[Rfam]
RNA: Nuclear RNase P
Organism: Phaeomoniella chlamydospora
RNA sequence: GCCGCUUCGAGCUGGUUCAUCCCAUAUUUUACAUGAAUGUGGUUCUUGCAAAUGAGAAAUUCGGAGUAAUCUUCACCUACGCACGCGUUCUUCAUCUUCGGAUGUUGAACCUGUGACUGCCCGUGAGGGCCUGGCGCGAAUGCGUCUGCAAUCAGCAUCAGAAACUCAGAGCUGGUGUAUUUCCUUGGAAAUAUCAUCCAGGUUUCUCUAUGGAAGAGCUGUUGCGAAGAUCGUGUGUACAUAAGUAUGCCACUUGAGUGCAAUACGCAGCGUUCUCUCUGCUUUCAAUCUAUUGAUAGGAAAGGGUUCCAUUCGAUUCCGAUUACUCUGAUGUGGG
Numbered sequence: 001g002c003c004g005c006u007u008c009g010a011g012c013u014g015g016u017u018c019a020u021c022c023c024a025u026a027u028u029u030u031a032c033a034u035g036a037a038u039g040u041g042g043u044u045c046u047u048g049c050a051a052a053u054g055a056g057a058a059a060u061u062c063g064g065a066g067u068a069a070u071c072u073u074c075a076c077c078u079a080c081g082c083a084c085g086c087g088u089u090c091u092u093c094a095u096c097u098u099c100g101g102a103u104g105u106u107g108a109a110c111c112u113g114u115g116a117c118u119g120c121c122c123g124u125g126a127g128g129g130c131c132u133g134g135c136g137c138g139a140a141u142g143c144g145u146c147u148g149c150a151a152u153c154a155g156c157a158u159c160a161g162a163a164a165c166u167c168a169g170a171g172c173u174g175g176u177g178u179a180u181u182u183c184c185u186u187g188g189a190a191a192u193a194u195c196a197u198c199c200a201g202g203u204u205u206c207u208c209u210a211u212g213g214a215a216g217a218g219c220u221g222u223u224g225c226g227a228a229g230a231u232c233g234u235g236u237g238u239a240c241a242u243a244a245g246u247a248u249g250c251c252a253c254u255u256g257a258g259u260g261c262a263a264u265a266c267g268c269a270g271c272g273u274u275c276u277c278u279c280u281g282c283u284u285u286c287a288a289u290c291u292a293u294u295g296a297u298a299g300g301a302a303a304g305g306g307u308u309c310c311a312u313u314c315g316a317u318u319c320c321g322a323u324u325a326c327u328c329u330g331a332u333g334u335g336g337g
Base pairs, nucleotide, nucleotide: 002337003336007331008330009329013270015268016267029042030041031040032039033038062321063320064319065318066317071229072228073227074226119130120129121128122127133146134145135144136143137142148225149224150223151222154220155219156218168209169208170207272309275306276305277304278303